A member of the RNA family "DUF805b RNA" from Flavobacterium sp. CF136, 33 nucleotides long.
Rfam's curators put it in the seed alignment.
Rfam classes the family as a cis-regulatory element.
The family's consensus secondary structure is taken from published work.

RNA sequence: AAGGAGAACCCGAAAAUCCUAAAAGAGUAGGGA
Numbered sequence: 001a002a003g004g005a006g007a008a009c010c011c012g013a014a015a016a017u018c019c020u021a022a023a024a025g026a027g028u029a030g031g032g033a
Base pairs, nucleotide, nucleotide: 002020003019004018005017009032010031011030
Dot-bracket structure: .((((...[[[.....)))).........]]].